[Rfam]
RNA sequence: UACAACUGGUUAAUCGAAGGAAGAAAUGAGAUCUUCAUGUUGAUCAAAACUUCCUCUCUGAUACUCCUACAUGCAUUGCUAUUUGAUAAGAAUGCAGUGUGUGAAGCUAGGUAAAGUCGUCUGAAUCGAACCUAAAAUUUACAAUCUCUGUGAGUCAUGGUUUGAGAUAGGGCGGGAGGCUACAAA
Dot-bracket structure: .................((((((..........................))))))((((......((((((((((((((..((......))..))))))))))....))))......(((((...((((((((.....(..........)..)).....))))))....)))))))))........
RNA: Group II catalytic intron D1-D4-5
Organism: Mesobacillus boroniphilus